Shown here is a 105-nucleotide RNA from Roseateles saccharophilus, a member of the family "Group II catalytic intron D1-D4-1".
Rfam describes the family as follows. Group II introns are found in rRNA, tRNA and mRNA of organelles in fungi, plants and protists, and also in mRNA in bacteria.
The base pairs follow the family's consensus structure.
It scores 36 bits against the family's covariance model.
Gene Ontology term of the family: Group II intron splicing.
[Rfam]
Nucleotides: 105
Base pairs, nucleotide, nucleotide: 001025002024004023007020008019009018010017011016042051043050044049052105053104054103061098062097063096077091078090079089
Number, partner (000 for none) and nucleotide at each position: 001025g002024c003000u004023u005000u006000a007020c008019g009018g010017c011016u012000g013000a014000a015000a016011g017010g018009c019008c020007g021000a022000c023004g024002g025001c026000g027000g028000u029000g030000c031000c032000g033000c034000a035000g036000c037000g038000a039000g040000g041000u042051c043050u044049c045000a046000g047000c048000a049044g050043a051042g052105g053104u054103c055000g056000u057000a058000g059000u060000a061098g062097c063096c064000g065000g066000g067000u068000a069000g070000c071000g072000g073000g074000g075000c076000c077091g078090c079089u080000g081000a082000g083000g084000c085000c086000g087000c088000c089079a090078g091077c092000g093000a094000g095000a096063g097062g098061c099000g100000a101000a102000g103054g104053a105052c